RNA sequence: CCAAUCAAGCCUCUUGCAGAUGCUCAAAUCGAUUGGA
Numbered sequence: 001c002c003a004a005u006c007a008a009g010c011c012u013c014u015u016g017c018a019g020a021u022g023c024u025c026a027a028a029u030c031g032a033u034u035g036g037a
Base pairs, nucleotide, nucleotide: 001036002035003034004033005032006031008024009023010022
A member of the RNA family "abiF RNA", 37 nucleotides long. Actinobacteria, Bacteroidetes, Clostridia, Proteobacteria, one Clostridia phage. Rfam's curators put it in the seed alignment. The family's RNA type in Rfam is small RNA.